[Rfam]
RNA sequence: CCCUCGCUCAAAAAAUCGCCAUUCGAAGCUUACAAACAGAGACAUUGCGAUUUAUCGCAGCGUCUCGCAUUCUUUCUGGCUUUGGGAGAAAGUCCCCGGACAUCUUCGUUUCGACGGAGCUUGCGGAAACGCGCCGCCAUAGAAGCACAGCGGCUGACUUCUGCACCCAGGCCCACGCCCUGCACCGGCUCUGCCCUCCGUUACAUCAGUUUGUUAAAGGCUCUGAAUCACGUUCUCUGCCGCUCUCGGUCCCCUUGGAUGAAGAUAUGAGUCCGCUGCCGAGAGAUUGGUGGGUUUCGAGACAGACGAGUCUGGCAGGCUGAUGGUUGGUAGACGCUUGGUGCUCGCGCGUGUGGUAUCGGGUCGCAGAGGAUUCUUGUCGAGAUUGAUAGGUAUGCGAUUGCUCGGCGAAAGCUGGGUUACUCGAUGGGGCUCAUUCUUGAUGCGAGG
Numbered sequence: 001c002c003c004u005c006g007c008u009c010a011a012a013a014a015a016u017c018g019c020c021a022u023u024c025g026a027a028g029c030u031u032a033c034a035a036a037c038a039g040a041g042a043c044a045u046u047g048c049g050a051u052u053u054a055u056c057g058c059a060g061c062g063u064c065u066c067g068c069a070u071u072c073u074u075u076c077u078g079g080c081u082u083u084g085g086g087a088g089a090a091a092g093u094c095c096c097c098g099g100a101c102a103u104c105u106u107c108g109u110u111u112c113g114a115c116g117g118a119g120c121u122u123g124c125g126g127a128a129a130c131g132c133g134c135c136g137c138c139a140u141a142g143a144a145g146c147a148c149a150g151c152g153g154c155u156g157a158c159u160u161c162u163g164c165a166c167c168c169a170g171g172c173c174c175a176c177g178c179c180c181u182g183c184a185c186c187g188g189c190u191c192u193g194c195c196c197u198c199c200g201u202u203a204c205a206u207c208a209g210u211u212u213g214u215u216a217a218a219g220g221c222u223c224u225g226a227a228u229c230a231c232g233u234u235c236u237c238u239g240c241c242g243c244u245c246u247c248g249g250u251c252c253c254c255u256u257g258g259a260u261g262a263a264g265a266u267a268u269g270a271g272u273c274c275g276c277u278g279c280c281g282a283g284a285g286a287u288u289g290g291u292g293g294g295u296u297u298c299g300a301g302a303c304a305g306a307c308g309a310g311u312c313u314g315g316c317a318g319g320c321u322g323a324u325g326g327u328u329g330g331u332a333g334a335c336g337c338u339u340g341g342u343g344c345u346c347g348c349g350c351g352u353g354u355g356g357u358a359u360c361g362g363g364u365c366g367c368a369g370a371g372g373a374u375u376c377u378u379g380u381c382g383a384g385a386u387u388g389a390u391a392g393g394u395a396u397g398c399g400a401u402u403g404c405u406c407g408g409c410g411a412a413a414g415c416u417g418g419g420u421u422a423c424u425c426g427a428u429g430g431g432g433c434u435c436a437u438u439c440u441u442g443a444u445g446c447g448a449g450g
Stems, first nucleotide, its partner, number of pairs: 002450006008443004014402006023086001024084006039066005045060006091434002094432004122133004227374003236370005245363004260358001347354002404419006
RNA: RNase MRP